[Rfam]
RNA sequence: GAGUUAUCUUCAGUGGCCAGCCUAAUGUCAUUUGACAGGAGGCCCAGCGAAAGCGUGUCCGAAAUGGGCGUCAAUAAGUCGCUGGAGAUAGACCCGAAGCGGAGGUGAUCUACCCAUGGUCAGGAUGAAGCGCGGGUAAAACCGCGUGAAGGUCCGAACUGGUGGACGUUGAAAAGUCCUCAGAUGAACUGUGGGUAGGAGCGAAAGACUAAUCAAACCCCGUGAUAGCUGGUU
Number, nucleotide and partner (000 for none) at each position: 001g000002a000003g000004u000005u090006a089007u088008c087009u086010u085011c084012a083013g082014u081015g080016g079017c078018c000019a000020g043021c042022c041023u040024a000025a000026u037027g036028u035029c000030a000031u000032u000033u000034g000035a028036c027037a026038g000039g000040a023041g022042g021043c020044c000045c000046a000047g054048c053049g000050a000051a000052a000053g048054c047055g000056u070057g069058u068059c067060c066061g000062a000063a000064a000065u000066g060067g059068g058069c057070g056071u000072c000073a000074a000075u000076a000077a000078g017079u016080c015081g014082c013083u012084g011085g010086a009087g008088a007089u006090a005091g000092a000093c232094c231095c000096g229097a000098a000099g000100c222101g221102g220103a000104g219105g218106u217107g000108a000109u000110c198111u197112a196113c195114c194115c193116a192117u191118g190119g189120u188121c186122a000123g155124g154125a153126u152127g000128a000129a000130g147131c146132g145133c144134g143135g142136g000137u000138a000139a000140a000141a000142c135143c134144g133145c132146g131147u130148g000149a000150a000151g000152g126153u125154c124155c123156g000157a000158a000159c183160u182161g181162g000163u000164g179165g178166a177167c176168g000169u000170u000171g000172a000173a000174a000175a000176g167177u166178c165179c164180u000181c161182a160183g159184a000185u000186g121187a000188a120189c119190u118191g117192u116193g115194g114195g113196u112197a111198g110199g000200a210201g209202c000203g000204a000205a000206a000207g000208a000209c201210u200211a000212a000213u000214c000215a000216a000217a106218c105219c104220c102221c101222g100223u000224g000225a000226u000227a000228g000229c096230u000231g094232g093233u000234u000

The record is a 234-nucleotide part of an RNA from an uncultured Verrucomicrobiota bacterium, which matches "Bacterial large subunit ribosomal RNA" in Rfam. Its family is annotated with ribosome and structural constituent of ribosome in the Gene Ontology. Rfam's curators put it in the seed alignment. The family's consensus secondary structure is taken from published work.